[Rfam]
Overview
The family of this 231-nucleotide RNA sequence from Syntrophomonas wolfei is "glmS glucosamine-6-phosphate activated ribozyme aptamer".
Nucleotides: 231
Base pairs, nucleotide, nucleotide: 021115022114023113024112025111026110027109029107125157126156127155128154129153134146135145136144137143158172159171160170161169162168176221177220178219180217181216182215190207191206192205193204194203195202196201
Number, partner (000 for none) and nucleotide at each position: 001000a002000a003000g004000c005000u006000c007000a008000u009000u010000u011000u012000a013000g014000c015000g016000c017000c018000u019000g020000c021115c022114c023113c024112g025111g026110c027109a028000g029107u030000c031000a032000g033000a034000a035000g036000a037000u038000g039000c040000u041000a042000u043000g044000u045000a046000u047000u048000a049000u050000u051000g052000g053000a054000u055000a056000u057000g058000c059000a060000u061000u062000a063000g064000c065000a066000u067000a068000g069000a070000g071000u072000u073000u074000u075000g076000c077000u078000g079000a080000u081000u082000a083000a084000u085000u086000c087000a088000u089000a090000a091000u092000a093000u094000a095000g096000g097000u098000g099000a100000g101000c102000a103000u104000c105000g106000g107029a108000g109027u110026g111025c112024c113023g114022g115021g116000u117000g118000a119000c120000g121000a122000g123000g124000a125157g126156g127155g128154g129153g130000u131000u132000u133000a134146u135145c136144g137143a138000a139000u140000u141000u142000g143137u144136c145135g146134g147000c148000g149000g150000a151000u152000g153129c154128c155127c156126c157125c158172c159171g160170g161169u162168g163000a164000c165000c166000a167000c168162c169161a170160c171159c172158g173000u174000c175000a176221g177220c178219a179000u180217g181216g182215c183000u184000a185000c186000a187000a188000a189000g190207a191206c192205c193204c194203g195202c196201a197000g198000u199000a200000a201196u202195g203194c204193g205192g206191g207190u208000g209000a210000c211000a212000a213000a214000a215182g216181c217180c218000c219178u220177g221176c222000g223000u224000g225000g226000a227000a228000a229000a230000g231000c